[Rfam]
RNA sequence: UGCCUCCAGUGAACAUUCAACGCUGUCGGUGAGUUUGAGCUUUAACCAAAACCAUCGACCGUUGACUGUACCCUGAGGGAUG
Numbered sequence: 001u002g003c004c005u006c007c008a009g010u011g012a013a014c015a016u017u018c019a020a021c022g023c024u025g026u027c028g029g030u031g032a033g034u035u036u037g038a039g040c041u042u043u044a045a046c047c048a049a050a051a052c053c054a055u056c057g058a059c060c061g062u063u064g065a066c067u068g069u070a071c072c073c074u075g076a077g078g079g080a081u082g
Stems, first nucleotide, its partner, number of pairs: 001082002004078002007075002014068002017065006025059007033052004
RNA: mir-181 microRNA precursor family
Organism: Mastacembelus armatus